This 71-nucleotide RNA from Nitunavirus NIT1 belongs to the Rfam family "skipping-rope RNA". NCBI's taxonomy places the organism under Viruses, Heunggongvirae, Caudoviricetes, Nitunavirus, Nitunavirus NIT1. A search with the family's covariance model found it, with a score of 47 bits.
[Rfam]
RNA sequence: CCUUUCAGAAGAUGGAACAGGUAGCCAUCACCUUUAUGUGGAGAUGUGGGAGUACCGACCCACCUGAAGAA
Number, nucleotide and partner (000 for none) at each position: 001c000002c000003u069004u068005u067006c066007a065008g064009a000010a000011g029012a028013u027014g026015g025016a000017a000018c000019a000020g056021g055022u054023a053024g000025c015026c014027a013028u012029c011030a000031c041032c000033u000034u000035u000036a000037u000038g000039u000040g000041g031042a000043g000044a000045u000046g063047u062048g061049g060050g059051a000052g000053u023054a022055c021056c020057g000058a000059c050060c049061c048062a047063c046064c008065u007066g006067a005068a004069g003070a000071a000